The record is a 383-nucleotide sequence from Sphingopyxis alaskensis, which matches "Bacterial RNase P class A" in Rfam. The source organism's lineage runs through Bacteria, Pseudomonadati, Pseudomonadota, Sphingopyxidaceae and Sphingopyxis alaskensis. From the family's description: Ribonuclease P (RNase P) is a ubiquitous endoribonuclease, found in archaea, bacteria and eukarya as well as chloroplasts and mitochondria. Rfam classes the family as a ribozyme. Its family is annotated with ribonuclease P activity, dimeric ribonuclease P complex and tRNA processing in the Gene Ontology.
RNA sequence: CCAGAGGGUCGGGCGAUCGCCGCUUUCGCAAGAAAGGGGAGGAAAGUCCGGGCUCCACGGAAACCACGGUGCCGGAUAACAUCCGGCGGCCUCCGCAAGGAGGUCAGGGAAAGUGCCACAGAGAGCAGACCGCCCACGGCUUCGGCCCGGCGAAAGGUGAAAGGGUGCGGUAAGAGCGCACCGCGCGGACGGUAACGGACGCGGCACGGCAAACCCCACCGGGAGCAAGGUCGAAUAGGGAUGGCACGGGAAACCAGGGCUGGUUCCGGCCCCGCCGUCCGGGUUGACUGCUUGAGCGUUCGGGUAACCGUCCGCCUAGAGGAAUGAUCGCCCAUCCCCGGCAACGGGGUGGACAGAACCCGGCUUACAGACCCUCUGGCAUC
Dot-bracket structure: ((((((((((((((((((.((.(((((....))))).))....[[[.[[[[[((((......[.[.((((((((((.....)))))((((((((....))))))).)((...(((((............((.(.(..(((....)))..).)...))......((((((.......))))))(((((..((....))..)))).)..)))..)))))))))))))...((((......((((((............(((((.].]..)))))..)))))).....))))......(((..(((....)))..)))..........)))))))..........................]]]]]]]].).))))))))))....